RNA sequence: GACUUGUAGGCGGUGGCCCGGUUAAGGGGGAGAACCCCCGGAGCCGUAGCGAAAGCGAGUCUUGCUGGGGCAAUUGUCACCGCUUAUAAACCCGAACCUGGGUGAUCUAUCCAUGACCAGGAUGAAGCUUGGGUGAAACUAAGUGGAGGUCCGAACCGACUGAUGUUGAAAAAUCAGCGGAUGAGUUGUGGUUAGGGGUGAAAUGCCACUCGAACCCAGAGCUAGCUGGUU
Numbered sequence: 001g002a003c004u005u006g007u008a009g010g011c012g013g014u015g016g017c018c019c020g021g022u023u024a025a026g027g028g029g030g031a032g033a034a035c036c037c038c039c040g041g042a043g044c045c046g047u048a049g050c051g052a053a054a055g056c057g058a059g060u061c062u063u064g065c066u067g068g069g070g071c072a073a074u075u076g077u078c079a080c081c082g083c084u085u086a087u088a089a090a091c092c093c094g095a096a097c098c099u100g101g102g103u104g105a106u107c108u109a110u111c112c113a114u115g116a117c118c119a120g121g122a123u124g125a126a127g128c129u130u131g132g133g134u135g136a137a138a139c140u141a142a143g144u145g146g147a148g149g150u151c152c153g154a155a156c157c158g159a160c161u162g163a164u165g166u167u168g169a170a171a172a173a174u175c176a177g178c179g180g181a182u183g184a185g186u187u188g189u190g191g192u193u194a195g196g197g198g199u200g201a202a203a204u205g206c207c208a209c210u211c212g213a214a215c216c217c218a219g220a221g222c223u224a225g226c227u228g229g230u231u
Stems, first nucleotide, its partner, number of pairs: 005088013020045004026039003049056002059071004091229002094226001098219006107195003111191007118183001120152004127144006156180003160177005197207003

Shown here is a 231-nucleotide part of an RNA, a member of the family "Bacterial large subunit ribosomal RNA". The family's consensus secondary structure is taken from published work.